[Rfam]
RNA sequence: CCUCCGGUUCUUGGCAGGCCUCGGCGACUCCGUGCUGGGCUCUGUAAUGUAGCGGAGGUAGAGCAGCGACCGGAGCGAAGUCUUCGGUGCCGGCGGCGACCUCCGCCGGUCCUACCCUCACGCUUCGGGACACGU
Number, nucleotide and partner (000 for none) at each position: 001c058002c057003u056004c055005c054006g000007g000008u000009u000010c000011u000012u000013g000014g000015c044016a043017g042018g041019c000020c039021u000022c037023g036024g035025c034026g000027a000028c000029u000030c000031c000032g000033u000034g025035c024036u023037g022038g000039g020040c000041u018042c017043u016044g015045u000046a000047a000048u000049g000050u000051a000052g000053c000054g005055g004056a003057g002058g001059u000060a000061g000062a000063g000064c000065a000066g000067c000068g000069a000070c000071c127072g126073g125074a124075g123076c122077g000078a000079a000080g000081u000082c000083u000084u000085c000086g000087g000088u000089g000090c109091c108092g107093g106094c105095g104096g103097c000098g000099a000100c000101c000102u000103c096104c095105g094106c093107c092108g091109g090110u000111c000112c000113u000114a000115c000116c000117c000118u000119c000120a000121c000122g076123c075124u074125u073126c072127g071128g000129g000130a000131c000132a000133c000134g000135u000
Source information
The family of this 135-nucleotide RNA from Tricholaema leucomelas is "Small nucleolar RNA SNORA57". Rfam describes the family as follows. U99 belongs to the H/ACA class of snoRNAs which are thought to guide the sites of modification of uridines to pseudouridines, the target for this family is unknown. Rfam classes the family as an H/ACA-box small nucleolar RNA. For this family Rfam cites "Identification of 13 novel human modification guide RNAs" (Vitali et al., Nucleic Acids Res, 2003).